[Rfam]
Rfam assigns this 115-nucleotide RNA sequence from Macrolepiota fuliginosa to the family "U5 spliceosomal RNA".
The family's RNA type in Rfam is spliceosomal small nuclear RNA.
U5 RNA is a component of both types of known spliceosome. The precise function of this molecule is unknown, though it is known that the 5' loop is required for splice site selection and p220 binding, and that both the 3' stem-loop and the Sm site are important for Sm protein binding and cap methylation.
RNA sequence: AGCAGCAGAGGAACCUUCAAUCAGACAAUCCCCUCGCCUUUUACUAGGGGAUUCCGUGUAGGUUCCUCAUCUAAUGCUGCAUUACAAUCUUUGGAACCACUUCUCCUUUGGAGAU
Numbered sequence: 001a002g003c004a005g006c007a008g009a010g011g012a013a014c015c016u017u018c019a020a021u022c023a024g025a026c027a028a029u030c031c032c033c034u035c036g037c038c039u040u041u042u043a044c045u046a047g048g049g050g051a052u053u054c055c056g057u058g059u060a061g062g063u064u065c066c067u068c069a070u071c072u073a074a075u076g077c078u079g080c081a082u083u084a085c086a087a088u089c090u091u092u093g094g095a096a097c098c099a100c101u102u103c104u105c106c107u108u109u110g111g112a113g114a115u
Stems, first nucleotide, its partner, number of pairs: 003079004009067008018058002027053008099115001101113003